[Rfam]
RNA sequence: GGCUGUGAGGGUUCCUGGCAUUCUGAUUUGUGACCUGUAGAGUAAAAUCACAUUGCCAGGGAUUACCACACUGCC
Number, nucleotide and partner (000 for none) at each position: 001g075002g074003c000004u000005g071006u070007g000008a000009g067010g066011g063012u062013u061014c060015c059016u058017g057018g056019c055020a054021u000022u052023c000024u050025g049026a048027u047028u046029u045030g000031u000032g000033a000034c000035c000036u000037g000038u000039a000040g000041a000042g000043u000044a000045a029046a028047a027048u026049c025050a024051c000052a022053u000054u020055g019056c018057c017058a016059g015060g014061g013062a012063u011064u000065a000066c010067c009068a000069c000070a006071c005072u000073g000074c002075c001
RNA: mir-23 microRNA precursor family